The record is a 69-nucleotide RNA sequence from Medicago truncatula, which matches "MIR2629 microRNA precursor family" in Rfam. The family's consensus secondary structure was predicted with RNAalifold. The source organism's lineage runs through Eukaryota, Tracheophyta, Fabaceae, Hologalegina and Medicago.
[Rfam]
RNA sequence: UACCGAAGUUUUCCUCGGUAAUUAACUGCAGUCGGUUUCAUAAUUCGACAAUUAACUGCCGAGGAAGAU
Numbered sequence: 001u002a003c004c005g006a007a008g009u010u011u012u013c014c015u016c017g018g019u020a021a022u023u024a025a026c027u028g029c030a031g032u033c034g035g036u037u038u039c040a041u042a043a044u045u046c047g048a049c050a051a052u053u054a055a056c057u058g059c060c061g062a063g064g065a066a067g068a069u
Stems, first nucleotide, its partner, number of pairs: 012065002015062006022055004027050002
Dot-bracket structure: ...........((.((((((.((((.((....................)).)))).)))))).))....